This 96-nucleotide RNA sequence from Phtheirospermum japonicum belongs to the Rfam family "mir-393 microRNA precursor family". The family has 27 seed sequences and 1,052 matches in Rfam 15.1. Rfam links the family to the GO terms miRNA-mediated post-transcriptional gene silencing and RISC complex. The match comes from Rfam's covariance-model search (85 bits).
RNA sequence: GAUGGAGAAUUCCAAAGGGAUCGCAUUGAUCUGAUGAUUUAAUUAAUUAGACUUUCUUUAAUCUUCAGAUCAUGCGAUCCUUUCGGAAUUCUCCAU
Numbered sequence: 001g002a003u004g005g006a007g008a009a010u011u012c013c014a015a016a017g018g019g020a021u022c023g024c025a026u027u028g029a030u031c032u033g034a035u036g037a038u039u040u041a042a043u044u045a046a047u048u049a050g051a052c053u054u055u056c057u058u059u060a061a062u063c064u065u066c067a068g069a070u071c072a073u074g075c076g077a078u079c080c081u082u083u084c085g086g087a088a089u090u091c092u093c094c095a096u
Stems, first nucleotide, its partner, number of pairs: 002096005008090006015083007023075004028071005036064001